[Rfam]
RNA sequence: UGGUUACAAAAUAACUUAUUCUGUGGCCAUUUUGAGUUACGAUAAUUACUAUGUUAAUUUACGAGAAUAUAAUAAUUUCUUACUAAGUGGUUUACUAUAACGUUAUGGUAAAUAUUCCAUGUGUUAUAGUAACCCAACUAUCGUAAAUAUGUAUUAUCUUUGUCAUAAAUUAGUAUAUAAAAUUAUCGUAAAUGGAGGCGGCUACAUAAUAACUUAUUUUGUAGUCG
Numbered sequence: 001u002g003g004u005u006a007c008a009a010a011a012u013a014a015c016u017u018a019u020u021c022u023g024u025g026g027c028c029a030u031u032u033u034g035a036g037u038u039a040c041g042a043u044a045a046u047u048a049c050u051a052u053g054u055u056a057a058u059u060u061a062c063g064a065g066a067a068u069a070u071a072a073u074a075a076u077u078u079c080u081u082a083c084u085a086a087g088u089g090g091u092u093u094a095c096u097a098u099a100a101c102g103u104u105a106u107g108g109u110a111a112a113u114a115u116u117c118c119a120u121g122u123g124u125u126a127u128a129g130u131a132a133c134c135c136a137a138c139u140a141u142c143g144u145a146a147a148u149a150u151g152u153a154u155u156a157u158c159u160u161u162g163u164c165a166u167a168a169a170u171u172a173g174u175a176u177a178u179a180a181a182a183u184u185a186u187c188g189u190a191a192a193u194g195g196a197g198g199c200g201g202c203u204a205c206a207u208a209a210u211a212a213c214u215u216a217u218u219u220u221g222u223a224g225u226c227g
Stems, first nucleotide, its partner, number of pairs: 001227014016212005022206007030198004037191011050177012065164002069160001071159001072157003080146004087141006093131011107117002